[Rfam]
The record is a 110-nucleotide RNA sequence from Flavobacteria bacterium BBFL7, which matches "Ribosomal S15 leader" in Rfam. Rfam links the family to the GO term regulation of translation, ncRNA-mediated. Lineage of the source: Bacteria > Pseudomonadati > Bacteroidota > Flavobacteriia.

RNA sequence: CGUGAAGUCAGAUCAUCUGACGUACAUAAUAUUCAUUAUAAAAUAAUUUUGGCAUGUAUUUAGCUCCAGAAAAAAAAGCAGAGAUUUUCGCAAAGUACGGAAAAGACGCA
Numbered sequence: 001c002g003u004g005a006a007g008u009c010a011g012a013u014c015a016u017c018u019g020a021c022g023u024a025c026a027u028a029a030u031a032u033u034c035a036u037u038a039u040a041a042a043a044u045a046a047u048u049u050u051g052g053c054a055u056g057u058a059u060u061u062a063g064c065u066c067c068a069g070a071a072a073a074a075a076a077a078g079c080a081g082a083g084a085u086u087u088u089c090g091c092a093a094a095g096u097a098c099g100g101a102a103a104a105g106a107c108g109c110a
Base pairs, nucleotide, nucleotide: 007021008020009019010018011017012016044062045061046060048058
Record summary
From the family's description: The E. coli Ribosomal S15 gene 5' UTR can form two alternative structures. One that is a series of three hairpins, The other includes a pseudoknot. The literature on the family includes a 1996 paper in Biochimie by Benard et al., "Pseudoknot and translational control in the expression of the S15 ribosomal protein". The family is grouped with related families in Rfam's "Ribosomal Protein S15 Leader clan".